A member of the RNA family "Small nucleolar RNA SNORA3/SNORA45 family" from Erinaceus europaeus, 127 nucleotides long. The family has 6 seed sequences and 2,080 matches in Rfam 15.1. A search with the family's covariance model found it, with a score of 94 bits. Rfam describes the family as follows. The members of this family belong to the H/ACA class of snoRNAs which are thought to guide the sites of modification of uridines to pseudouridines. This family includes mouse snoMBI-28 and human homologues ACA3 (SNORA3) and ACA3-2 (SNORA45). Lineage of the source: Eukaryota > Teleostomi > Sarcopterygii > Tetrapoda > Erinaceus. For this family Rfam cites "RNomics: an experimental approach that identifies 201 candidates for novel, small, non-messenger RNAs in mouse" (Huttenhofer et al., EMBO J, 2001).
RNA sequence: GCUGAGGCUAGAGUCUCGCCCGGGCAUGGUGUUGCCCCGGUGUGCUGGAGUCCUCAGAGAGCAGCUGCUGGCCUUAUUCGCUGGCUGUGGCCCCGUGGCCGAGCCAGUCACCAGGCCAGGGACAGGC
Numbered sequence: 001g002c003u004g005a006g007g008c009u010a011g012a013g014u015c016u017c018g019c020c021c022g023g024g025c026a027u028g029g030u031g032u033u034g035c036c037c038c039g040g041u042g043u044g045c046u047g048g049a050g051u052c053c054u055c056a057g058a059g060a061g062c063a064g065c066u067g068c069u070g071g072c073c074u075u076a077u078u079c080g081c082u083g084g085c086u087g088u089g090g091c092c093c094c095g096u097g098g099c100c101g102a103g104c105c106a107g108u109c110a111c112c113a114g115g116c117c118a119g120g121g122a123c124a125g126g127c
Stems, first nucleotide, its partner, number of pairs: 002057005007051003012046002015044001017042004023036004068119007080108005086102001089099001091097001